RNA sequence: AGCCUUUGUGCUGUCCAUUCACUUUUGGAAGCUUGCCGAUGUGGUGUCAAAAAAGCUGCAAAUUAAACUCUUUGCUGCCAUUUUCUGCCCUUGAAUUUGGUGUCUUUGGUGUUGGGGCUGCAUCAGAUACAGCU
Numbered sequence: 001a002g003c004c005u006u007u008g009u010g011c012u013g014u015c016c017a018u019u020c021a022c023u024u025u026u027g028g029a030a031g032c033u034u035g036c037c038g039a040u041g042u043g044g045u046g047u048c049a050a051a052a053a054a055g056c057u058g059c060a061a062a063u064u065a066a067a068c069u070c071u072u073u074g075c076u077g078c079c080a081u082u083u084u085c086u087g088c089c090c091u092u093g094a095a096u097u098u099g100g101u102g103u104c105u106u107u108g109g110u111g112u113u114g115g116g117g118c119u120g121c122a123u124c125a126g127a128u129a130c131a132g133c134u
Base pairs, nucleotide, nucleotide: 002057004055005054006053007052009049010048012046013045014044015043016041017040018039019038022035069127070126071125073122074121075120077118078117083116084115085114087112088111089109090108093104094103

Description:
Rfam assigns this 134-nucleotide RNA from Loxodonta africana to the family "Small nucleolar RNA SNORA13". Rfam links the family to the GO terms nucleolus and RNA processing. The match comes from Rfam's covariance-model search (95 bits). Its Rfam clan is "SNORA13 clan". ACA13 is a member of the H/ACA class of snoRNA that guide the sites of modification of uridines to pseudouridines. Lineage of the source: Eukaryota > Vertebrata > Gnathostomata > Proboscidea > Loxodonta.